[Rfam]
RNA sequence: AUCUUAUCCAGAGUGGCAGAGGGACUGGCCCUAUGAAGCCCGGCAACCGGCAUAUUUAAAUGUAUCGGUGCUAAUUCCAGCGAUAUUUCUAUAUCGACAGAUGAGAA
Numbered sequence: 001a002u003c004u005u006a007u008c009c010a011g012a013g014u015g016g017c018a019g020a021g022g023g024a025c026u027g028g029c030c031c032u033a034u035g036a037a038g039c040c041c042g043g044c045a046a047c048c049g050g051c052a053u054a055u056u057u058a059a060a061u062g063u064a065u066c067g068g069u070g071c072u073a074a075u076u077c078c079a080g081c082g083a084u085a086u087u088u089c090u091a092u093a094u095c096g097a098c099a100g101a102u103g104a105g106a107a
Stems, first nucleotide, its partner, number of pairs: 002106007013041001015040003021031003025080004042072004047068002050063003076099001081096006